[Rfam]
RNA sequence: UUCCGGGGCCACAGCGCCCCGGCCUCAUUGAAGC
Number, nucleotide and partner (000 for none) at each position: 001u000002u000003c022004c021005g020006g019007g018008g017009c016010c000011a000012c000013a000014g000015c000016g009017c008018c007019c006020c005021g004022g003023c000024c000025u000026c000027a000028u000029u000030g000031a000032a000033g000034c000
RNA: CRISPR RNA direct repeat element